[Rfam]
RNA sequence: GGGUCAAUGAUGACACCUCCACUUCUCUGGAAGAGAAAUGAUGACAUUAAAAUCACGCUCAAUAGGAUCACGCUGAGUCCC
Numbered sequence: 001g002g003g004u005c006a007a008u009g010a011u012g013a014c015a016c017c018u019c020c021a022c023u024u025c026u027c028u029g030g031a032a033g034a035g036a037a038a039u040g041a042u043g044a045c046a047u048u049a050a051a052a053u054c055a056c057g058c059u060c061a062a063u064a065g066g067a068u069c070a071c072g073c074u075g076a077g078u079c080c081c
Stems, first nucleotide, its partner, number of pairs: 001081003005075002008072002

Rfam assigns this 81-nucleotide RNA from Loxodonta africana to the family "Small nucleolar RNA SNORD115". Pairs were carried over by alignment from the consensus structure, which was predicted with PFOLD.